[Rfam]
RNA sequence: AAACUUACUUUGUGCGGGGGUUAACCGUGAUCAGCAAGGCGGUUCCCCCAGGGUGAGGCCCUUCCAUUGCACCGAGGAUGGGAUGACCCCUGUGAAUACCACCAAAGUGGGGGUAUCUCGGGCACACAAUUUUUGAUAGUCGGGAUUGCGUUCGCGCUCUCCCGU
Numbered sequence: 001a002a003a004c005u006u007a008c009u010u011u012g013u014g015c016g017g018g019g020g021u022u023a024a025c026c027g028u029g030a031u032c033a034g035c036a037a038g039g040c041g042g043u044u045c046c047c048c049c050a051g052g053g054u055g056a057g058g059c060c061c062u063u064c065c066a067u068u069g070c071a072c073c074g075a076g077g078a079u080g081g082g083a084u085g086a087c088c089c090c091u092g093u094g095a096a097u098a099c100c101a102c103c104a105a106a107g108u109g110g111g112g113g114u115a116u117c118u119c120g121g122g123c124a125c126a127c128a129a130u131u132u133u134u135g136a137u138a139g140u141c142g143g144g145a146u147u148g149c150g151u152u153c154g155c156g157c158u159c160u161c162c163c164g165u
Stems, first nucleotide, its partner, number of pairs: 012125004016049005024043005050091004055087001057084001059082001061080001063078003093120003096116003100112001102109001141164005148157003
The record is a 165-nucleotide sequence from Nesidiocoris tenuis, which matches "U1 spliceosomal RNA" in Rfam. Pairs were carried over by alignment from the consensus structure, which is taken from published work. Its Rfam clan is "U1 clan". Rfam describes the family as follows. U1 is a small nuclear RNA (snRNA) component of the spliceosome (involved in pre-mRNA splicing). Its 5' end forms complementary base pairs with the 5' splice junction, thus defining the 5' donor site of an intron. There are significant differences in sequence and secondary structure between metazoan and yeast U1 snRNAs, the latter being much longer (568 nucleotides as compared to 164 nucleotides in human). Nevertheless, secondary structure predictions suggest that all U1 snRNAs share a 'common core' consisting of helices I, II, the proximal region of III, and IV. This family does not contain the larger yeast sequences. Lineage of the source: Eukaryota > Arthropoda > Cimicoidea > Dicyphina > Nesidiocoris.